[Rfam]
RNA sequence: CAUGGAGAAAGCUGACUUGGCUGGUGUGGUACAGAGAAGCCAGCUUGUUUACAUGCUUGCUCCAUG
Numbered sequence: 001c002a003u004g005g006a007g008a009a010a011g012c013u014g015a016c017u018u019g020g021c022u023g024g025u026g027u028g029g030u031a032c033a034g035a036g037a038a039g040c041c042a043g044c045u046u047g048u049u050u051a052c053a054u055g056c057u058u059g060c061u062c063c064a065u066g
Base pairs, nucleotide, nucleotide: 001066002065003064004063005062006061007060009058010057011056012055014049015048016047019045020044021043022042023041024040025039026032027031
This 66-nucleotide RNA from Erinaceus europaeus belongs to the Rfam family "MAT2A 3'UTR stem loop F". NCBI's taxonomy places the organism under Eukaryota, Eumetazoa, Bilateria, Deuterostomia, Erinaceus. By type it is a cis-regulatory element.